[Rfam]
RNA sequence: AUAUAAGCAAAAAUGUACUUUUUAGAUUCAUUGAAUAACUGAUGUAUCUGGUCUUUAUUAUAGUCCAAAUUCAUCAGUUAUUCAAUGAAUCUGAAAAGUAUAAUUUUACUUAUAA
Numbered sequence: 001a002u003a004u005a006a007g008c009a010a011a012a013a014u015g016u017a018c019u020u021u022u023u024a025g026a027u028u029c030a031u032u033g034a035a036u037a038a039c040u041g042a043u044g045u046a047u048c049u050g051g052u053c054u055u056u057a058u059u060a061u062a063g064u065c066c067a068a069a070u071u072c073a074u075c076a077g078u079u080a081u082u083c084a085a086u087g088a089a090u091c092u093g094a095a096a097a098g099u100a101u102a103a104u105u106u107u108a109c110u111u112a113u114a115a
Base pairs, nucleotide, nucleotide: 002114003113004112005111006110007109009107010106011105012104015101016100017099018098019097020096021095022094023093024092025091027089028088029087030086031085032084033083034082035081036080037079038078039077040076041075042074043073044072049067050066051065
RNA: MIR2593 microRNA precursor family